[Rfam]
The record is an 80-nucleotide sequence from Felis catus, which matches "Small nucleolar RNA U2-19" in Rfam. It is annotated as a C/D-box small nucleolar RNA. It is one of the family's seed sequences. Rfam links the family to the GO terms nucleolus and RNA processing.
RNA sequence: AAUCAAUGAUGAAAAUAGACAAUUCUGAGCAUCAGAAGACCUUCUAAUUUGCCUGAUGCAUGAUCCCUAUAGUUCUGAAA
Numbered sequence: 001a002a003u004c005a006a007u008g009a010u011g012a013a014a015a016u017a018g019a020c021a022a023u024u025c026u027g028a029g030c031a032u033c034a035g036a037a038g039a040c041c042u043u044c045u046a047a048u049u050u051g052c053c054u055g056a057u058g059c060a061u062g063a064u065c066c067c068u069a070u071a072g073u074u075c076u077g078a079a080a
Stems, first nucleotide, its partner, number of pairs: 029059005037050003